The record is a 127-nucleotide sequence from Cyclopterus lumpus, which matches "U4atac minor spliceosomal RNA" in Rfam. Its family is annotated with pre-mRNA 5'-splice site binding, mRNA 5'-splice site recognition and spliceosomal tri-snRNP complex assembly in the Gene Ontology. For this family Rfam cites "Evolutionary conservation of minor U12-type spliceosome between plants and humans" (Lorkovic et al., RNA, 2005). The organism belongs to Cyclopterus, within Eukaryota. U4atac is an essential component of the minor U12-type spliceosome complex which is required for removal of the rarer class of eukaryotic introns (AT-AC, U12-type).
[Rfam]
RNA sequence: ACCUGCCUUGUCAUGGGGUGAGUGAGCUGUUCAAUGAACGUCUAGUGAGAGGAGCCCUGCUAACACCAUAACGACACAUAAGCACCACCCGGACUUCUGUCUGGGUCAUGGUGCAAUUUUUGGAACC
Numbered sequence: 001a002c003c004u005g006c007c008u009u010g011u012c013a014u015g016g017g018g019u020g021a022g023u024g025a026g027c028u029g030u031u032c033a034a035u036g037a038a039c040g041u042c043u044a045g046u047g048a049g050a051g052g053a054g055c056c057c058u059g060c061u062a063a064c065a066c067c068a069u070a071a072c073g074a075c076a077c078a079u080a081a082g083c084a085c086c087a088c089c090c091g092g093a094c095u096u097c098u099g100u101c102u103g104g105g106u107c108a109u110g111g112u113g114c115a116a117u118u119u120u121u122g123g124a125a126c127c
Stems, first nucleotide, its partner, number of pairs: 005019005022060003026055003030051003038046002082114006088105002091102004